[Rfam]
RNA sequence: CAGGCCCGGGAUCGACAUCCGUCAGCGCGGUUGCGCCCACGGGUGCCGUCCGG
Number, nucleotide and partner (000 for none) at each position: 001c000002a000003g000004g000005c000006c000007c000008g000009g000010g000011a000012u000013c000014g000015a000016c045017a044018u043019c042020c041021g040022u039023c000024a000025g036026c035027g034028c033029g000030g000031u000032u000033g028034c027035g026036c025037c000038c000039a022040c021041g020042g019043g018044u017045g016046c000047c000048g000049u000050c000051c000052g000053g000
RNA: ffh sRNA
Organism: Pseudogemmobacter blasticus